Background:
Rfam assigns this 100-nucleotide RNA sequence from Erysipelothrix larvae to the family "Purine riboswitch aptamer". NCBI's taxonomy places the organism under Bacteria, Bacillota, Erysipelotrichales, Erysipelotrichaceae, Erysipelothrix. The base pairs follow the family's consensus structure, which is taken from published work. Riboswitches are metabolite binding domains within certain messenger RNAs that serve as precision sensors for their corresponding targets. Allosteric rearrangement of mRNA structure is mediated by ligand binding, and this results in modulation of gene expression.
[Rfam]
RNA sequence: AGUCGUGUAUUUACAAAACCAAAUUUAAUACCUGUAAUAAGGGCAGGUAGUUUCUACCAGAGCGCCGUAAAUGCUCUGACAAUCGUUUUGAAAACAAUCU
Numbered sequence: 001a002g003u004c005g006u007g008u009a010u011u012u013a014c015a016a017a018a019c020c021a022a023a024u025u026u027a028a029u030a031c032c033u034g035u036a037a038u039a040a041g042g043g044c045a046g047g048u049a050g051u052u053u054c055u056a057c058c059a060g061a062g063c064g065c066c067g068u069a070a071a072u073g074c075u076c077u078g079a080c081a082a083u084c085g086u087u088u089u090g091a092a093a094a095c096a097a098u099c100u
Stems, first nucleotide, its partner, number of pairs: 018087001020085001023083003029049007058078007